RNA sequence: CCUCCUUUUCUUGGUGGGGGUCGGGCAUGCAGUCCCGAUCCGCAUAAUGUACAGAGGUAGAGGGAACGGGCUCUGGCCCCCUCAGCGUCUUGUCUUCAGUACCUGCGGCCAGCAAUCCACCAGUUCUAUCCUUAAGCUCCGGAACACAG
Numbered sequence: 001c002c003u004c005c006u007u008u009u010c011u012u013g014g015u016g017g018g019g020g021u022c023g024g025g026c027a028u029g030c031a032g033u034c035c036c037g038a039u040c041c042g043c044a045u046a047a048u049g050u051a052c053a054g055a056g057g058u059a060g061a062g063g064g065a066a067c068g069g070g071c072u073c074u075g076g077c078c079c080c081c082u083c084a085g086c087g088u089c090u091u092g093u094c095u096u097c098a099g100u101a102c103c104u105g106c107g108g109c110c111a112g113c114a115a116u117c118c119a120c121c122a123g124u125u126c127u128a129u130c131c132u133u134a135a136g137c138u139c140c141g142g143a144a145c146a147c148a149g
Stems, first nucleotide, its partner, number of pairs: 001057004015044002018041003022037004083141001085139001087137002102123001105120001107118002
A member of the RNA family "Small nucleolar RNA SNORA57" from Odocoileus virginianus, 149 nucleotides long. Its family is annotated with RNA processing and nucleolus in the Gene Ontology. On this family, see Vitali et al., Nucleic Acids Res 2003: "Identification of 13 novel human modification guide RNAs". The family's consensus secondary structure was predicted with PFOLD. The family's RNA type in Rfam is H/ACA-box small nucleolar RNA.